[Rfam]
RNA sequence: GUGUAAGCCUCCAGCGUGCUUGGGUUUGGAGUGGCCCUGUGCAUUCCUGCCAGGCUUGCAAGAACAGUUUUGACACGGUUUGAGGCCUUGCUCUACACCAUCUACAGAGCAAGGUUAUAGAAGCUUCAGACCAUU
Numbered sequence: 001g002u003g004u005a006a007g008c009c010u011c012c013a014g015c016g017u018g019c020u021u022g023g024g025u026u027u028g029g030a031g032u033g034g035c036c037c038u039g040u041g042c043a044u045u046c047c048u049g050c051c052a053g054g055c056u057u058g059c060a061a062g063a064a065c066a067g068u069u070u071u072g073a074c075a076c077g078g079u080u081u082g083a084g085g086c087c088u089u090g091c092u093c094u095a096c097a098c099c100a101u102c103u104a105c106a107g108a109g110c111a112a113g114g115u116u117a118u119a120g121a122a123g124c125u126u127c128a129g130a131c132c133a134u135u
Stems, first nucleotide, its partner, number of pairs: 003059006017043003022037005071128003086114006093107002